[Rfam]
RNA sequence: AUCUGUCAACUGUCGAGUAUCCUUUCGGGCUUUUCGCAGUUGGCCUUUAACUUAAGGAGUGCAUAGUGGCCCGUAUCGCUGGCAUUAACAUUCCUGAU
Numbered sequence: 001a002u003c004u005g006u007c008a009a010c011u012g013u014c015g016a017g018u019a020u021c022c023u024u025u026c027g028g029g030c031u032u033u034u035c036g037c038a039g040u041u042g043g044c045c046u047u048u049a050a051c052u053u054a055a056g057g058a059g060u061g062c063a064u065a066g067u068g069g070c071c072c073g074u075a076u077c078g079c080u081g082g083c084a085u086u087a088a089c090a091u092u093c094c095u096g097a098u
Stems, first nucleotide, its partner, number of pairs: 005044009021082002026073004034097002
The record is a 98-nucleotide RNA from Shewanella sp. W3-18-1, which matches "Alpha operon ribosome binding site" in Rfam. For this family Rfam cites "Translational repression of the Escherichia coli alpha operon mRNA: importance of an mRNA conformational switch and a ternary entrapment complex" (Schlax et al., J Biol Chem, 2001). Taxonomically the source falls in Shewanella (Bacteria, Pseudomonadota, Gammaproteobacteria, Shewanellaceae). Rfam's curators put it in the seed alignment. It is annotated as a cis-regulatory element.